[Rfam]
RNA sequence: CAUAUUCGAAGCUGCGUACUCCUCCUCCCAACGCGCUUCGAUAGGUUGGCAACGCUCCUCCUCCCAGUUGCUGACCAACGCAAAUGACGCUCACCGGAUCCUCCUCCCCCGGUGAGCGUUAUUU
Numbered sequence: 001c002a003u004a005u006u007c008g009a010a011g012c013u014g015c016g017u018a019c020u021c022c023u024c025c026u027c028c029c030a031a032c033g034c035g036c037u038u039c040g041a042u043a044g045g046u047u048g049g050c051a052a053c054g055c056u057c058c059u060c061c062u063c064c065c066a067g068u069u070g071c072u073g074a075c076c077a078a079c080g081c082a083a084a085u086g087a088c089g090c091u092c093a094c095c096g097g098a099u100c101c102u103c104c105u106c107c108c109c110c111g112g113u114g115a116g117c118g119u120u121a122u123u124u
Base pairs, nucleotide, nucleotide: 007040008039009038011036012035014034015033016032017031044076045075046074047073048072049071050070051069052068053067087119088118089117090116091115092114093113094112095111096110097109
Source information:
This 124-nucleotide sequence from Martelella endophytica belongs to the Rfam family "Alphaproteobacterial ar14". About the family: Smr14C2 was renamed NfeR1 (Nodule Formation Efficiency RNA) highly expressed in salt stress and during the symbiotic interaction on legume roots. Rfam classes the family as a small RNA. The source organism's lineage runs through Bacteria, Pseudomonadati, Pseudomonadota, Hyphomicrobiales and Martelella. A search with the family's covariance model found it, with a score of 100 bits. Its family is annotated with biological process involved in symbiotic interaction in the Gene Ontology.